[Rfam]
RNA sequence: UGAGAAUUCAAGGCCAUAGCAGAAGUGCUCAUGAUACAACCCUGUCAGAUUCCAAUGAAUCUGCAAUUUUUGCU
Dot-bracket structure: ...........[[....((((((((((.......)))..]]....(((((((....)))))))....)))))))
Shown here is a 74-nucleotide RNA from Crocodylus porosus, a member of the family "Mammalian CPEB3 ribozyme". The match comes from Rfam's covariance-model search (48 bits).